[Rfam]
RNA: FMN riboswitch aptamer (RFN element)
RNA sequence: GUUUUGUUUUAGGGCGAGGCGCAAUUCCUCACCGGCGGUAAUGAGCUUUAUGCUACAAGUCCGAGAGCCUUUUAGGCAGAUUAGGUGUGAUUCCUAAACCGACGGUAUAGUCCGGAUAAAGAAAAACGAUUA
Numbered sequence: 001g002u003u004u005u006g007u008u009u010u011a012g013g014g015c016g017a018g019g020c021g022c023a024a025u026u027c028c029u030c031a032c033c034g035g036c037g038g039u040a041a042u043g044a045g046c047u048u049u050a051u052g053c054u055a056c057a058a059g060u061c062c063g064a065g066a067g068c069c070u071u072u073u074a075g076g077c078a079g080a081u082u083a084g085g086u087g088u089g090a091u092u093c094c095u096a097a098a099c100c101g102a103c104g105g106u107a108u109a110g111u112c113c114g115g116a117u118a119a120a121g122a123a124a125a126a127c128g129a130u131u132a
Stems, first nucleotide, its partner, number of pairs: 004129007017029003031111002033101002036063003059099002067077003081097005103114003
Dot-bracket structure: ...(((((((......(((.......))).[[((.(((....................[[)))...(((.....)))...(((((.......)))))]])).(((....]])))........)))))))...